[Rfam]
RNA sequence: GGGAUGAUAGUUUAGGGGUAGAACACUAGAUUGUGGCUCUAGCAACCCGGGUUCGAAUCCCGGUCGUCCCU
Number, nucleotide and partner (000 for none) at each position: 001g070002g069003g068004a067005u066006g065007a064008u000009a000010g024011u023012u022013u021014a000015g000016g000017g000018g000019u000020a000021g013022a012023a011024c010025a000026c042027u041028a040029g039030a038031u000032u000033g000034u000035g000036g000037c000038u030039c029040u028041a027042g026043c000044a000045a000046c000047c063048c062049g061050g060051g059052u000053u000054c000055g000056a000057a000058u000059c051060c050061c049062g048063g047064u007065c006066g005067u004068c003069c002070c001071u000
RNA: tRNA